[Rfam]
RNA: Small nucleolar RNA U54
RNA sequence: UGCUCUGUGAUUACAUGCCUUAUCGGGCAAUAUACGCUAUUCUGAAGAUGAAUUUUGUGUAGAGAUCUAUUGAAACGAAAUGAGAGCU
Numbered sequence: 001u002g003c004u005c006u007g008u009g010a011u012u013a014c015a016u017g018c019c020u021u022a023u024c025g026g027g028c029a030a031u032a033u034a035c036g037c038u039a040u041u042c043u044g045a046a047g048a049u050g051a052a053u054u055u056u057g058u059g060u061a062g063a064g065a066u067c068u069a070u071u072g073a074a075a076c077g078a079a080a081u082g083a084g085a086g087c088u
Stems, first nucleotide, its partner, number of pairs: 002087004